Shown here is a 46-nucleotide RNA sequence from Bubo bubo, a member of the family "Histone 3' UTR stem-loop". Rfam's curators write: The mRNAs of metazoan histone genes lack a poly-A tail. 3' end processing occurs at a site between a highly conserved stem-loop (modelled by this family) and a purine rich region around 20 nts downstream (the histone downstream element, or HDE). The stem-loop is bound by a 31 kDa stem-loop binding protein (SLBP - also termed the histone hairpin binding protein, or HBP). The family's consensus secondary structure is taken from published work. Gene Ontology term of the family: mRNA 3'-end processing by stem-loop binding and cleavage.
RNA sequence: CCAAAGGCUCUUUUAAGAGCCACCCACUUAACUAGAAAAGAGCUGU
Numbered sequence: 001c002c003a004a005a006g007g008c009u010c011u012u013u014u015a016a017g018a019g020c021c022a023c024c025c026a027c028u029u030a031a032c033u034a035g036a037a038a039a040g041a042g043c044u045g046u
Stems, first nucleotide, its partner, number of pairs: 006021006